[Rfam]
RNA sequence: UGCAGCCUUGUCAAAUUCAGUGGUGCCUCUUUCAUGGCAGCUACUGGUCCGAGUGGCUGCCACAGGAAACUCUGUAGCUCAUGGGCCCCGUGUCUGUGUGCGCAGUGGCUCGUGGGGAUAAGAAAAGUGCUACAGACAGAC
Numbered sequence: 001u002g003c004a005g006c007c008u009u010g011u012c013a014a015a016u017u018c019a020g021u022g023g024u025g026c027c028u029c030u031u032u033c034a035u036g037g038c039a040g041c042u043a044c045u046g047g048u049c050c051g052a053g054u055g056g057c058u059g060c061c062a063c064a065g066g067a068a069a070c071u072c073u074g075u076a077g078c079u080c081a082u083g084g085g086c087c088c089c090g091u092g093u094c095u096g097u098g099u100g101c102g103c104a105g106u107g108g109c110u111c112g113u114g115g116g117g118a119u120a121a122g123a124a125a126a127g128u129g130c131u132a133c134a135g136a137c138a139g140a141c
Stems, first nucleotide, its partner, number of pairs: 002060004018046006024039004074133005079126001086117007